[Rfam]
RNA sequence: UUGAAUAUAAAUUGAUUUAUGUUUGGAUAGACUCUUCCAAAAGUUAUUCUUAUGAAUUGAUGUUGUUUGGAUAG
Numbered sequence: 001u002u003g004a005a006u007a008u009a010a011a012u013u014g015a016u017u018u019a020u021g022u023u024u025g026g027a028u029a030g031a032c033u034c035u036u037c038c039a040a041a042a043g044u045u046a047u048u049c050u051u052a053u054g055a056a057u058u059g060a061u062g063u064u065g066u067u068u069g070g071a072u073a074g
Stems, first nucleotide, its partner, number of pairs: 011061008021053002025049004030045004

MIR5272 microRNA precursor family: a 74-nucleotide sequence from Trifolium medium. NCBI's taxonomy places the organism under Eukaryota, Streptophyta, Pentapetalae, Papilionoideae, Trifolium. The family has 6 seed sequences and 271 matches in Rfam 15.1. Its family is annotated with RISC complex and miRNA-mediated post-transcriptional gene silencing in the Gene Ontology. The family's consensus secondary structure was predicted with RNAalifold. It scores 81 bits against the family's covariance model.